Y RNA: a 120-nucleotide RNA from Nomascus leucogenys. NCBI's taxonomy places the organism under Eukaryota, Metazoa, Mammalia, Hominoidea, Nomascus. A search with the family's covariance model found it, with a score of 62 bits. Y RNAs are components of the Ro ribonucleoprotein particle (Ro RNP), in association with Ro60 and La proteins. The Y RNAs and Ro60 and La proteins are well conserved, but the function of the Ro RNP is not known. By type it is a non-coding RNA gene.

RNA sequence: GGCUGGUCGAAAGGUAGUGUAGUUAUUAAUAUCUCAACUGAUUGUUCAGAGGCAGUUAUAGAUCGAACUUCUUGUUCUCCUCUCUCCCUCCUUCUCACUACUACACUUGACUAGUCUUGA
Dot-bracket structure: ((((((((.((..((((((..(............................((.((.....................)).))............).))))...))..))))))))))....